[Rfam]
RNA sequence: GUGGAGCAUCACGGGAGCCCGGCGCACCGGGCUGAGAGGCGGGCUGAGGCGGCCCGCGACCGUCCGAACCUGAUCCGGGUCAUGCCGGCGAAGGGAGAGACGAGACUGUGGCA
Numbered sequence: 001g002u003g004g005a006g007c008a009u010c011a012c013g014g015g016a017g018c019c020c021g022g023c024g025c026a027c028c029g030g031g032c033u034g035a036g037a038g039g040c041g042g043g044c045u046g047a048g049g050c051g052g053c054c055c056g057c058g059a060c061c062g063u064c065c066g067a068a069c070c071u072g073a074u075c076c077g078g079g080u081c082a083u084g085c086c087g088g089c090g091a092a093g094g095g096a097g098a099g100a101c102g103a104g105a106c107u108g109u110g111g112c113a
Base pairs, nucleotide, nucleotide: 006101009098010097011063012062013061014060017032018031019030020029021028039057040056041055042054043053044052045051046050069094070093071092075088076087077086078085
Dot-bracket structure: .....(..((((((..(((((......)))))......((((((((...))))))))..)))).....(((...((((......))))...)))..))..)............
The family of this 113-nucleotide RNA sequence from Saccharothrix sp. ST-888 is "TPP riboswitch aptamer (THI element)". Lineage of the source: Bacteria > Actinomycetota > Actinomycetes > Pseudonocardiales > Saccharothrix. Vitamin B(1) in its active form thiamin pyrophosphate (TPP) is an essential coenzyme that is synthesised by coupling of pyrimidine and thiazole moieties in bacteria.